[Rfam]
RNA: MISL RNA
RNA sequence: GGAUAAGUCUCGGGCGAGAGCCCGGGAAAAUGGUCGGGAGGAACUGACGUUCCCGGCCCCUUGAGCGAAUCCGUGUGAAAGCGCGGUGAGCUUGGUGAAAACCAAGCAACAAGUUUGAGGCCAAUGUCACCGGCAUCCUCAGGUGGGGUCGUUCCCUCCUGCAAAACGAACAAGGAUGCCCGGCGGCGAGCGAGGUGCACGAAAUCCGGCCGGAUGGCAGGCACGCAACCACUCGCGAAGCCGAGUGACGCCCGAAUCUCCAGGUGAAUCAAGGAGUGGCGAGGCGAACACAGUCGGUCCAAGACCGGACGUUGCUACUGUGAGUCAGUGUGGUGAAGAAAGUCCUGAUCGCGAAGAACGAGACAAGCGAUGCGAUCAGACCCAGCCGGGGUCGCAACCGGAAGGAGAAAAAGGGACUUCAUUCAUCGCGGAAUGAGCCCACUGCGGGGAAGGCACCGAGAAAUUGGUGAUGACCCUGAUUGGUGCGAUAAAUUCCGAAAGUACGGGAGGCACGGCGCAAGUCGGGUCGUCCGUCUGAGAAAGAAAAUGCAAUGUGAGGGUUAAGAGACAAGACCCGUGGUCCAAGGCAAACGAUCGGAUGCGAAAACGCCCGAUGCCGACCUUGGAUGAAAAGAAGCCGAUCAAGUUCUCAGCGAGAGCGGUUUCACAGGUUUGGAAAGUGCGAAUCGGCAGAUGCGUAACUCCAAGCGAAGACGUCUCACCCAAGAAGUCGAUGAUGGCAACAUCACGGCCGGCUCCGCUGCGGAGUCGAACGGAAUCACGACAAUCGUUCUUGUCGGUCAACGCAGCGUCGGGGAACUGGCAGCCAAUGACACUCGACGGGUGGAUUUGGGCGCCAAAUGUCAGUCAACCGGGGAAAGAGAAUGUGGCGAAUUCC
Number, nucleotide and partner (000 for none) at each position: 001g000002g000003a000004u000005a000006a000007g000008u027009c026010u025011c024012g023013g022014g021015c020016g000017a000018g000019a000020g015021c014022c013023c012024g011025g010026g009027a008028a000029a000030a000031u000032g058033g057034u056035c055036g054037g053038g052039a051040g050041g000042a000043a000044c000045u000046g000047a000048c000049g000050u040051u039052c038053c037054c036055g035056g034057c033058c032059c000060c000061u000062u000063g000064a000065g000066c000067g000068a000069a000070u000071c000072c000073g000074u000075g000076u000077g000078a000079a000080a000081g000082c000083g000084c000085g000086g000087u000088g000089a000090g000091c000092u000093u000094g000095g000096u000097g000098a000099a000100a000101a000102c000103c000104a000105a000106g000107c000108a000109a000110c000111a000112a000113g000114u000115u000116u000117g000118a000119g000120g000121c000122c000123a000124a000125u000126g000127u000128c000129a000130c000131c000132g180133g179134c178135a177136u176137c175138c174139u000140c000141a000142g000143g158144u000145g156146g155147g154148g000149u169150c168151g167152u166153u165154c147155c146156c145157u000158c143159c000160u000161g000162c000163a000164a000165a153166a152167c151168g150169a149170a000171c000172a000173a000174g138175g137176a136177u135178g134179c133180c132181c000182g000183g000184c243185g242186g241187c240188g000189a000190g236191c235192g234193a233194g232195g000196u000197g000198c000199a000200c000201g000202a000203a000204a000205u000206c000207c000208g000209g000210c000211c000212g000213g000214a000215u000216g000217g000218c000219a000220g000221g000222c000223a000224c000225g000226c000227a000228a000229c000230c000231a000232c194233u193234c192235g191236c190237g000238a000239a000240g187241c186242c185243g184244a000245g000246u000247g000248a000249c286250g285251c284252c283253c000254g000255a000256a000257u000258c000259u000260c000261c000262a000263g000264g000265u000266g000267a000268a000269u000270c000271a000272a000273g000274g000275a000276g000277u000278g000279g000280c000281g000282a000283g252284g251285c250286g249287a000288a000289c322290a321291c320292a319293g318294u000295c307296g306297g305298u304299c000300c000301a000302a000303g000304a298305c297306c296307g295308g000309a000310c554311g553312u552313u551314g550315c549316u000317a000318c293319u292320g291321u290322g289323a000324g000325u000326c000327a000328g000329u000330g000331u000332g000333g000334u000335g000336a000337a000338g000339a000340a000341a000342g000343u000344c000345c000346u000347g377348a376349u375350c374351g373352c372353g371354a000355a000356g000357a000358a000359c000360g000361a000362g000363a000364c000365a000366a000367g000368c000369g000370a000371u353372g352373c351374g350375a349376u348377c347378a000379g000380a000381c000382c405383c404384a000385g000386c401387c400388g399389g398390g000391g000392u000393c000394g000395c000396a000397a000398c389399c388400g387401g386402a000403a000404g383405g382406a000407g000408a000409a000410a000411a000412a000413g000414g000415g000416a000417c000418u000419u000420c000421a000422u000423u000424c000425a000426u000427c000428g000429c497430g496431g495432a494433a493434u000435g000436a000437g486438c485439c000440c482441a481442c000443u000444g000445c000446g000447g000448g000449g000450a000451a000452g000453g000454c000455a000456c000457c000458g000459a000460g000461a000462a000463a000464u000465u000466g000467g000468u000469g000470a000471u000472g000473a000474c000475c000476c000477u000478g000479a000480u000481u441482g440483g000484u000485g438486c437487g000488a000489u000490a000491a000492a000493u433494u432495c431496c430497g429498a000499a000500a000501g000502u000503a000504c000505g000506g000507g000508a000509g000510g000511c526512a000513c524514g523515g000516c000517g000518c000519a000520a000521g000522u000523c514524g513525g000526g511527u000528c000529g000530u000531c000532c000533g000534u000535c000536u000537g000538a000539g000540a000541a000542a000543g000544a000545a000546a000547a000548u000549g315550c314551a313552a312553u311554g310555u000556g000557a000558g724559g723560g722561u000562u000563a000564a000565g720566a719567g718568a717569c000570a000571a000572g000573a000574c000575c000576c000577g000578u000579g000580g000581u627582c626583c625584a624585a623586g622587g621588c000589a000590a000591a000592c000593g000594a615595u614596c613597g612598g611599a000600u000601g000602c000603g000604a000605a000606a000607a000608c000609g000610c000611c598612c597613g596614a595615u594616g000617c000618c000619g000620a000621c587622c586623u585624u584625g583626g582627a581628u000629g000630a000631a000632a000633a000634g666635a665636a664637g663638c662639c661640g660641a000642u658643c657644a000645a000646g000647u000648u000649c000650u000651c000652a000653g000654c000655g000656a000657g643658a642659g000660c640661g639662g638663u637664u636665u635666c634667a000668c000669a000670g000671g709672u708673u707674u706675g705676g704677a703678a000679a000680g702681u701682g699683c698684g697685a000686a695687u694688c693689g000690g000691c000692a000693g688694a687695u686696g000697c684698g683699u682700a000701a681702c680703u677704c676705c675706a674707a673708g672709c671710g000711a000712a000713g000714a000715c000716g000717u568718c567719u566720c565721a000722c560723c559724c558725a000726a000727g000728a000729a000730g752731u751732c750733g749734a000735u748736g747737a746738u745739g744740g000741c000742a000743a000744c739745a738746u737747c736748a735749c733750g732751g731752c730753c771754g770755g769756c768757u767758c000759c000760g810761c809762u808763g807764c000765g000766g000767a757768g756769u755770c754771g753772a000773a000774c000775g000776g000777a000778a000779u000780c000781a000782c000783g000784a000785c000786a000787a000788u000789c000790g000791u000792u000793c000794u000795u000796g000797u000798c000799g000800g000801u000802c000803a000804a000805c000806g000807c763808a762809g761810c760811g000812u000813c000814g000815g000816g000817g000818a000819a868820c867821u866822g865823g864824c863825a862826g855827c854828c000829a850830a849831u848832g000833a000834c000835a000836c000837u000838c000839g000840a000841c000842g000843g000844g000845u000846g000847g000848a831849u830850u829851u000852g000853g000854g827855c826856g000857c000858c000859a000860a000861a000862u825863g824864u823865c822866a821867g820868u819869c000870a000871a000872c000873c000874g000875g000876g000877g000878a000879a000880a000881g000882a000883g897884a896885a895886u000887g000888u000889g000890g000891c000892g000893a000894a000895u885896u884897c883898c000